RNA sequence: AAAUGUAGUUGACUAUAAGUAUACCUAUGGAAGCGUAUACUAAGUACACUACAUUUUC
Dot-bracket structure: (((((((((..(((...(((((((..........))))))).)))..)))))))))..
RNA: mir-728 microRNA precursor family
Organism: Denticeps clupeoides